This 171-nucleotide RNA from Salinivirga cyanobacteriivorans belongs to the Rfam family "Group II catalytic intron D1-D4-3". NCBI's taxonomy places the organism under Bacteria, Pseudomonadati, Bacteroidia, Bacteroidales, Salinivirga.
RNA sequence: UCCAUCGUGAGGUGGAAUCUGAAAGAAUCUGGCGGUAAAACUCUGCCCCGAGGAACACGAAUCGUAUCAGGCAUAUCCAGAUGGAUGAGAUUGCAAAACAAAUCGAAGUCCCAGGACUAUACGAAAUCUGGAGUGUAAAUGCGGCGGGAACAUGGAGAGAAAGUAUAUUGU
Numbered sequence: 001u002c003c004a005u006c007g008u009g010a011g012g013u014g015g016a017a018u019c020u021g022a023a024a025g026a027a028u029c030u031g032g033c034g035g036u037a038a039a040a041c042u043c044u045g046c047c048c049c050g051a052g053g054a055a056c057a058c059g060a061a062u063c064g065u066a067u068c069a070g071g072c073a074u075a076u077c078c079a080g081a082u083g084g085a086u087g088a089g090a091u092u093g094c095a096a097a098a099c100a101a102a103u104c105g106a107a108g109u110c111c112c113a114g115g116a117c118u119a120u121a122c123g124a125a126a127u128c129u130g131g132a133g134u135g136u137a138a139a140u141g142c143g144g145c146g147g148g149a150a151c152a153u154g155g156a157g158a159g160a161a162a163g164u165a166u167a168u169u170g171u
Stems, first nucleotide, its partner, number of pairs: 001016006029170001031168001035164002041157005047148004062144005071136003076132007083111004089104004